[Rfam]
RNA sequence: CUGCUGGGAGGAUAGAACAGGCAUCUAUCACACCCUUGUGGUAUAAAGAGAUGCAGGAUAUGCCACCCUGCCUCAGCAG
Numbered sequence: 001c002u003g004c005u006g007g008g009a010g011g012a013u014a015g016a017a018c019a020g021g022c023a024u025c026u027a028u029c030a031c032a033c034c035c036u037u038g039u040g041g042u043a044u045a046a047a048g049a050g051a052u053g054c055a056g057g058a059u060a061u062g063c064c065a066c067c068c069u070g071c072c073u074c075a076g077c078a079g
Stems, first nucleotide, its partner, number of pairs: 001079008011029005020064004031048001032042003053071005

This 79-nucleotide RNA sequence belongs to the Rfam family "skipping-rope RNA". The family's consensus secondary structure is taken from published work. By type it is a small RNA. It is one of the family's seed sequences.